[Rfam]
RNA sequence: UUCUUAUCGAGAGUGGUGGAGGGACUGGCCCGAUGAAACCCGGCAACCUUGGUCUGAUGGACCUUACGGUGCUAAAUCCUGCGGAGUUAUUCUGAGAGAUAAGAA
Numbered sequence: 001u002u003c004u005u006a007u008c009g010a011g012a013g014u015g016g017u018g019g020a021g022g023g024a025c026u027g028g029c030c031c032g033a034u035g036a037a038a039c040c041c042g043g044c045a046a047c048c049u050u051g052g053u054c055u056g057a058u059g060g061a062c063c064u065u066a067c068g069g070u071g072c073u074a075a076a077u078c079c080u081g082c083g084g085a086g087u088u089a090u091u092c093u094g095a096g097a098g099a100u101a102a103g104a105a
Stems, first nucleotide, its partner, number of pairs: 001105008013041001015040003021031003025081001027079002042073004047069002051063002077097001082094005

Notes
The record is a 105-nucleotide RNA from Brevibacillus borstelensis, which matches "SAM riboswitch aptamer (S box leader)" in Rfam. A search with the family's covariance model found it, with a score of 86 bits. The SAM riboswitch is found upstream of a number of genes which code for proteins involved in methionine or cysteine biosynthesis in Gram-positive bacteria. The source organism's lineage runs through Bacteria, Bacilli, Paenibacillaceae, Brevibacillus and Brevibacillus borstelensis. Its family is annotated with regulation of gene expression in the Gene Ontology.